[Rfam]
RNA sequence: AGCAGAGGGAGCCUGGCUCCCGUGCCGCGAGGCAUGAGGAAAGUCCCCCCACCCGUUCGGGCAGGCGGCCGGAUGCAAAUCCGGGACGGGAGACCGUCGGCACUGGAACAGAGACGACACGUCCCUCUCGAACCGAUGAGGCGCGCGACCCGACCCGCGAGGGGAGGAAGCUAACCCGCCGAGGGAAGCGCGGCUUCGCCGCGUUACACGCGAACGGCGCAAGCCGUGAGCGAGCGUGACCGACGAACGUCGGUCACGUUACAGGUGCGCGGCGUCAGCCGCGAGCCAGACGGGAGGGGACCGAUGGAACGGCUAAUCCCCGCCGGUGCAAGUCCACGCGCGCAAGGUAGCCCGACACGCCCGCAAGGGGCCGCGUGGACGCUCAGCCGAAUGCCAGGCCGAACAGAAGGGGGCUUACUCCCCUCCAGCU
Numbered sequence: 001a002g003c004a005g006a007g008g009g010a011g012c013c014u015g016g017c018u019c020c021c022g023u024g025c026c027g028c029g030a031g032g033c034a035u036g037a038g039g040a041a042a043g044u045c046c047c048c049c050c051a052c053c054c055g056u057u058c059g060g061g062c063a064g065g066c067g068g069c070c071g072g073a074u075g076c077a078a079a080u081c082c083g084g085g086a087c088g089g090g091a092g093a094c095c096g097u098c099g100g101c102a103c104u105g106g107a108a109c110a111g112a113g114a115c116g117a118c119a120c121g122u123c124c125c126u127c128u129c130g131a132a133c134c135g136a137u138g139a140g141g142c143g144c145g146c147g148a149c150c151c152g153a154c155c156c157g158c159g160a161g162g163g164g165a166g167g168a169a170g171c172u173a174a175c176c177c178g179c180c181g182a183g184g185g186a187a188g189c190g191c192g193g194c195u196u197c198g199c200c201g202c203g204u205u206a207c208a209c210g211c212g213a214a215c216g217g218c219g220c221a222a223g224c225c226g227u228g229a230g231c232g233a234g235c236g237u238g239a240c241c242g243a244c245g246a247a248c249g250u251c252g253g254u255c256a257c258g259u260u261a262c263a264g265g266u267g268c269g270c271g272g273c274g275u276c277a278g279c280c281g282c283g284a285g286c287c288a289g290a291c292g293g294g295a296g297g298g299g300a301c302c303g304a305u306g307g308a309a310c311g312g313c314u315a316a317u318c319c320c321c322g323c324c325g326g327u328g329c330a331a332g333u334c335c336a337c338g339c340g341c342g343c344a345a346g347g348u349a350g351c352c353c354g355a356c357a358c359g360c361c362c363g364c365a366a367g368g369g370g371c372c373g374c375g376u377g378g379a380c381g382c383u384c385a386g387c388c389g390a391a392u393g394c395c396a397g398g399c400c401g402a403a404c405a406g407a408a409g410g411g412g413g414c415u416u417a418c419u420c421c422c423c424u425c426c427a428g429c430u
Stems, first nucleotide, its partner, number of pairs: 001430003005425005010419002012398006021036005041416003045413005050328004059351001064324005069084005085098005099319002104315003120303002123298008332380009

Source information
Shown here is a 430-nucleotide sequence from Halobacterium hubeiense, a member of the family "Archaeal RNase P". From the family's description: Ribonuclease P (RNase P) is a ubiquitous endoribonuclease, found in archaea, bacteria and eukarya as well as chloroplasts and mitochondria. Its best characterised activity is the generation of mature 5'-ends of tRNAs by cleaving the 5'-leader elements of precursor-tRNAs. Cellular RNase Ps are ribonucleoproteins. A reference for the family is Frank and Pace (1998), "Ribonuclease P: unity and diversity in a tRNA processing ribozyme", Annu Rev Biochem. The base pairs follow the family's consensus structure, which is taken from published work. It is annotated as a ribozyme.